[Rfam]
RNA sequence: GAAAGACGCGCAUUUAUCAUCAUCCCUAUUUCUCAGAGAUGUUUUUCUGCCACGGCUUAUACCGUGGCCUUUU
Numbered sequence: 001g002a003a004a005g006a007c008g009c010g011c012a013u014u015u016a017u018c019a020u021c022a023u024c025c026c027u028a029u030u031u032c033u034c035a036g037a038g039a040u041g042u043u044u045u046u047c048u049g050c051c052a053c054g055g056c057u058u059a060u061a062c063c064g065u066g067g068c069c070u071u072u073u
Base pairs, nucleotide, nucleotide: 021041022040023039024038026036027035049068050067051066052065053064054063
Rfam assigns this 73-nucleotide sequence from Candidatus Symbiopectobacterium sp. PLON1 to the family "MicA sRNA". For this family Rfam cites "Novel small RNA-encoding genes in the intergenic regions of Escherichia coli" (Argaman et al., Curr Biol, 2001). The family's consensus secondary structure was predicted with WAR. Its family is annotated with mRNA binding in the Gene Ontology.